Rfam assigns this 95-nucleotide sequence from Protea cynaroides to the family "Small nucleolar RNA Z161/Z228".
RNA sequence: AAGCCAGAUGAUGAGAUUGAUUGGAUUUACUCACGACGGUCAUCUGAGGCACUACUGUGUCAAUUUUGAUGCAAUAUCCAAUGUUCCUGAUGGCU
Numbered sequence: 001a002a003g004c005c006a007g008a009u010g011a012u013g014a015g016a017u018u019g020a021u022u023g024g025a026u027u028u029a030c031u032c033a034c035g036a037c038g039g040u041c042a043u044c045u046g047a048g049g050c051a052c053u054a055c056u057g058u059g060u061c062a063a064u065u066u067u068g069a070u071g072c073a074a075u076a077u078c079c080a081a082u083g084u085u086c087c088u089g090a091u092g093g094c095u
Stems, first nucleotide, its partner, number of pairs: 001095001004092001050059003
Lineage of the source: Eukaryota > Embryophyta > Magnoliopsida > Proteaceae > Protea. Its family is annotated with RNA processing and nucleolus in the Gene Ontology.